Rfam assigns this 161-nucleotide sequence from Providencia stuartii to the family "sok antitoxin (CssrC)".
By type it is an antitoxin RNA.
Rfam's curators write: Also identified in Shigella as CssrC.
Pairs were carried over by alignment from the consensus structure, which is taken from published work.
The source organism's lineage runs through Bacteria, Pseudomonadota, Enterobacterales, Morganellaceae and Providencia.
Rfam links the family to the GO term mRNA binding.

RNA sequence: GGGUGCUUAACCCUUUUGGGUUUAAGCAUUUAUUCAUAGCCCAAAAUGGAAAAGCCCCGAUGAUUGAGUUUUUAUGUUCAACCAUCGAGGCACAUCCCAACAGAACAAUUGAGAUAGUGCCUCUUAACAAAUAAGAGGUCAAGAGGAAAUGACUAAGUAUA
Numbered sequence: 001g002g003g004u005g006c007u008u009a010a011c012c013c014u015u016u017u018g019g020g021u022u023u024a025a026g027c028a029u030u031u032a033u034u035c036a037u038a039g040c041c042c043a044a045a046a047u048g049g050a051a052a053a054g055c056c057c058c059g060a061u062g063a064u065u066g067a068g069u070u071u072u073u074a075u076g077u078u079c080a081a082c083c084a085u086c087g088a089g090g091c092a093c094a095u096c097c098c099a100a101c102a103g104a105a106c107a108a109u110u111g112a113g114a115u116a117g118u119g120c121c122u123c124u125u126a127a128c129a130a131a132u133a134a135g136a137g138g139u140c141a142a143g144a145g146g147a148a149a150u151g152a153c154u155a156a157g158u159a160u161a
Stems, first nucleotide, its partner, number of pairs: 001058003005055004011049002014046009026034001059086004064081005087123005094115003098111003128151002132147001